Purine riboswitch aptamer: a 102-nucleotide sequence from Anaerofilum hominis. The base pairs follow the family's consensus structure, which is taken from published work. Riboswitches are metabolite binding domains within certain messenger RNAs that serve as precision sensors for their corresponding targets.
RNA sequence: CUCAAAAAAAUUGAAUAAGCCAAUAUAAUAUGGAUAAUACGGGUCCAGAGUUUCUACCGCGCCGCCGUAAAUGGCGCGACUAUUGGAAAAAACAGAACGGGA
Numbered sequence: 001c002u003c004a005a006a007a008a009a010a011u012u013g014a015a016u017a018a019g020c021c022a023a024u025a026u027a028a029u030a031u032g033g034a035u036a037a038u039a040c041g042g043g044u045c046c047a048g049a050g051u052u053u054c055u056a057c058c059g060c061g062c063c064g065c066c067g068u069a070a071a072u073g074g075c076g077c078g079a080c081u082a083u084u085g086g087a088a089a090a091a092a093c094a095g096a097a098c099g100g101g102a
Stems, first nucleotide, its partner, number of pairs: 020086006029049001031047005058078007